A member of the RNA family "Plastid-ycf2 5UTR RNA" from Vanilla planifolia, 75 nucleotides long.
RNA sequence: AUACAUCCAACAAGAAUUGAACAUAUGAGCUUACCAAUUAUGAGUUGGGUGCUUCAACCAUUCAGCUAAGGAUGC
Numbered sequence: 001a002u003a004c005a006u007c008c009a010a011c012a013a014g015a016a017u018u019g020a021a022c023a024u025a026u027g028a029g030c031u032u033a034c035c036a037a038u039u040a041u042g043a044g045u046u047g048g049g050u051g052c053u054u055c056a057a058c059c060a061u062u063c064a065g066c067u068a069a070g071g072a073u074g075c
Stems, first nucleotide, its partner, number of pairs: 004074005010026001012024001014022001041068002044066008
Annotation
Rfam describes the family as follows. Plastid ycf2 is a non-coding RNA (ncRNA) recognised in plastids. It was found in the prime untranslated region (5UTR) of ycf2 genes, it presents a tRNA-like motif which suggests it can be involved in mRNA maturation, particularly involved in defining the precise 5' end of the transcript.